[Rfam]
A member of the RNA family "Molybdenum/Tungsten riboswitch aptamer (Moco RNA motif)" from Vibrio tapetis, 135 nucleotides long. A search with the family's covariance model found it, with a score of 97 bits. The family has 160 seed sequences and 1,248 matches in Rfam 15.1.
RNA sequence: UAGUUGCCAUAACUCCGAGCUCUGAUUGCUAAGUCUGAGAAGAUACGAAAUUAGAGCCAGUGGCAUAUACCACAAGGGUUUACUUGGAAAUGAGUAAGCCUCCCGUGUUUGGAAAGGUGUUCCGUGGCGCAACAA
Dot-bracket structure: ..........(((.((..(((((((((.(...((((....))))..).)))))))))..((((......))))..(((((((((((....)))))))))))((.......))...)).)))..............
Numbered sequence: 001u002a003g004u005u006g007c008c009a010u011a012a013c014u015c016c017g018a019g020c021u022c023u024g025a026u027u028g029c030u031a032a033g034u035c036u037g038a039g040a041a042g043a044u045a046c047g048a049a050a051u052u053a054g055a056g057c058c059a060g061u062g063g064c065a066u067a068u069a070c071c072a073c074a075a076g077g078g079u080u081u082a083c084u085u086g087g088a089a090a091u092g093a094g095u096a097a098g099c100c101u102c103c104c105g106u107g108u109u110u111g112g113a114a115a116g117g118u119g120u121u122c123c124g125u126g127g128c129g130c131a132a133c134a135a
Stems, first nucleotide, its partner, number of pairs: 011121003015117002019057009029047001033044004060073004076101011102112002